[Rfam]
RNA sequence: AAUACAAAAGGGAUUUGGAGUAUGAAAAAACUCAAAGAGAAGUGUGUUGUCUAUCAGCUUUUUCUUUCGUGAUAUUAACAAGAAUGGAGUUAAAUAACACCACAAACAUU
Numbered sequence: 001a002a003u004a005c006a007a008a009a010g011g012g013a014u015u016u017g018g019a020g021u022a023u024g025a026a027a028a029a030a031c032u033c034a035a036a037g038a039g040a041a042g043u044g045u046g047u048u049g050u051c052u053a054u055c056a057g058c059u060u061u062u063u064c065u066u067u068c069g070u071g072a073u074a075u076u077a078a079c080a081a082g083a084a085u086g087g088a089g090u091u092a093a094a095u096a097a098c099a100c101c102a103c104a105a106a107c108a109u110u
Base pairs, nucleotide, nucleotide: 043104044103045102046101048099049098056091057090058089059088060087061086063083064082065081066080
RNA: Small nucleolar RNA snoR97